[Rfam]
A member of the RNA family "msiK RNA" from Rarobacter incanus, 60 nucleotides long.
The match comes from Rfam's covariance-model search (62 bits).
RNA sequence: AAUAUCCAUCCAUUCACAACGGAUCGUCCGGCACGUACCUGCCGGUGAAGGGAACGCAUC
Numbered sequence: 001a002a003u004a005u006c007c008a009u010c011c012a013u014u015c016a017c018a019a020c021g022g023a024u025c026g027u028c029c030g031g032c033a034c035g036u037a038c039c040u041g042c043c044g045g046u047g048a049a050g051g052g053a054a055c056g057c058a059u060c
Stems, first nucleotide, its partner, number of pairs: 010052002013049004028045006